A member of the RNA family "SL2 RNA" from Oesophagostomum dentatum, 107 nucleotides long.
RNA sequence: GUUUUUAACCCAGUGUCAAAAGGUACUAAGGGCGUCUGACCUUCCACGUGGAUGCGUCACAAACCUUAAUUUUUGGAUCGCCUUUCCGGGGUAUCCGGGAGGGCAGC
Numbered sequence: 001g002u003u004u005u006u007a008a009c010c011c012a013g014u015g016u017c018a019a020a021a022g023g024u025a026c027u028a029a030g031g032g033c034g035u036c037u038g039a040c041c042u043u044c045c046a047c048g049u050g051g052a053u054g055c056g057u058c059a060c061a062a063a064c065c066u067u068a069a070u071u072u073u074u075g076g077a078u079c080g081c082c083u084u085u086c087c088g089g090g091g092u093a094u095c096c097g098g099g100a101g102g103g104c105a106g107c
Base pairs, nucleotide, nucleotide: 007035009031010030013026015024016023017022037059038058039057040056041054043052044051045050084103085102086101090096091095
Its family is annotated with mRNA trans splicing, via spliceosome in the Gene Ontology. Clan: SL clan. About the family: This family represents SL2 RNA. SL2 RNA is involved in trans splicing in lower eukaryotes.